[Rfam]
RNA sequence: CGGCUGCAAUCAACAUUCAUUGCUGUCGGUGGGUUUUAGGUUCAGUCAGCUCUCUGACCAAUGAAUGCAAACUGCAGACCA
Number, nucleotide and partner (000 for none) at each position: 001c000002g080003g079004c077005u076006g075007c074008a073009a000010u000011c000012a000013a000014c067015a066016u065017u064018c063019a062020u061021u060022g059023c000024u000025g058026u057027c056028g055029g054030u000031g052032g000033g050034u049035u048036u000037u000038a000039g000040g000041u000042u000043c000044a000045g000046u000047c000048a035049g034050c033051u000052c031053u000054c029055u028056g027057a026058c025059c022060a021061a020062u019063g018064a017065a016066u015067g014068c000069a000070a000071a000072c000073u008074g007075c006076a005077g004078a000079c003080c002081a000